Shown here is a 67-nucleotide sequence from Syntrophomonas wolfei, a member of the family "DUF3800-VIII RNA". Rfam classes the family as a small RNA. Pairs were carried over by alignment from the consensus structure, which is taken from published work. Bacteroidetes, Cyanobacteria, Firmicutes, Planctomycetes (1 example), Proteobacteria, Tenericutes (1 example). It is one of the family's seed sequences.
RNA sequence: GUGACCCUGUCGGCUCCGAAGUCCCAAGUUUAUGUUUGGGAUAUUGAUGUAGGAGCGAUGGGGUCUU
Numbered sequence: 001g002u003g004a005c006c007c008u009g010u011c012g013g014c015u016c017c018g019a020a021g022u023c024c025c026a027a028g029u030u031u032a033u034g035u036u037u038g039g040g041a042u043a044u045u046g047a048u049g050u051a052g053g054a055g056c057g058a059u060g061g062g063g064u065c066u067u
Stems, first nucleotide, its partner, number of pairs: 001067001003065010014055004021042009